[Rfam]
RNA: Alphaproteobacteria transfer-messenger RNA
RNA sequence: GUUAUUGAAUCUAUUGUAAUUCCUUUUAUAUUAAUAAUGUUGGUUUUCCAACUACGACGAUAAACGAAUUUCGUAAUAACCAUUGCGGACGUGGGGGCAGUACCCACCACCUCCACCAUUACAACUUAUGGGGGUGAACUAGAUUCGACGGAUGACUAAAGGCUAUUCUUUCGUUCGGGAUUGUUCCACCGUGACGGGCUAAUUUAUAAUUGCUAACGAAAGUUACGCACUUGCUGCCUAAUUAACUUUGUUAAUUAAGUAGACGGGGUCCGGGGCACCUGGCAACAGAACGCCCCUUA
Numbered sequence: 001g002u003u004a005u006u007g008a009a010u011c012u013a014u015u016g017u018a019a020u021u022c023c024u025u026u027u028a029u030a031u032u033a034a035u036a037a038u039g040u041u042g043g044u045u046u047u048c049c050a051a052c053u054a055c056g057a058c059g060a061u062a063a064a065c066g067a068a069u070u071u072c073g074u075a076a077u078a079a080c081c082a083u084u085g086c087g088g089a090c091g092u093g094g095g096g097g098c099a100g101u102a103c104c105c106a107c108c109a110c111c112u113c114c115a116c117c118a119u120u121a122c123a124a125c126u127u128a129u130g131g132g133g134g135u136g137a138a139c140u141a142g143a144u145u146c147g148a149c150g151g152a153u154g155a156c157u158a159a160a161g162g163c164u165a166u167u168c169u170u171u172c173g174u175u176c177g178g179g180a181u182u183g184u185u186c187c188a189c190c191g192u193g194a195c196g197g198g199c200u201a202a203u204u205u206a207u208a209a210u211u212g213c214u215a216a217c218g219a220a221a222g223u224u225a226c227g228c229a230c231u232u233g234c235u236g237c238c239u240a241a242u243u244a245a246c247u248u249u250g251u252u253a254a255u256u257a258a259g260u261a262g263a264c265g266g267g268g269u270c271c272g273g274g275g276c277a278c279c280u281g282g283c284a285a286c287a288g289a290a291c292g293c294c295c296c297u298u299a
Stems, first nucleotide, its partner, number of pairs: 039052005056175005066168004072162001081154003086150002091107005108136007176191003181201001183199001185198003266280004272296005